A member of the RNA family "Lysine riboswitch aptamer" from Bacillus sp. SJS, 176 nucleotides long.

RNA sequence: AAUGACGAUAGAGGUGCGAACUUCAAUAGUAAGCAUAAACAGGAAAAUGGUUUCCGUUUACUUAUGCUGAAAGGGGAGCGUCGCCGAAGAAGAAAGGGUGCCAUUGCUGUUUCUUCUGGUUUUGCAUUGAAUAAAUGCAGGGCUGUCAAGAUUAAUCUUGGAGAGCUAUCUCAUUG
Numbered sequence: 001a002a003u004g005a006c007g008a009u010a011g012a013g014g015u016g017c018g019a020a021c022u023u024c025a026a027u028a029g030u031a032a033g034c035a036u037a038a039a040c041a042g043g044a045a046a047a048u049g050g051u052u053u054c055c056g057u058u059u060a061c062u063u064a065u066g067c068u069g070a071a072a073g074g075g076g077a078g079c080g081u082c083g084c085c086g087a088a089g090a091a092g093a094a095a096g097g098g099u100g101c102c103a104u105u106g107c108u109g110u111u112u113c114u115u116c117u118g119g120u121u122u123u124g125c126a127u128u129g130a131a132u133a134a135a136u137g138c139a140g141g142g143c144u145g146u147c148a149a150g151a152u153u154a155a156u157c158u159u160g161g162a163g164a165g166c167u168a169u170c171u172c173a174u175u176g
Stems, first nucleotide, its partner, number of pairs: 007170005016084004021078004032068007088117008097108003118144011146161006
Lineage of the source: Bacteria > Bacillati > Bacilli > Bacillaceae > Bacillus. The match comes from Rfam's covariance-model search (113 bits).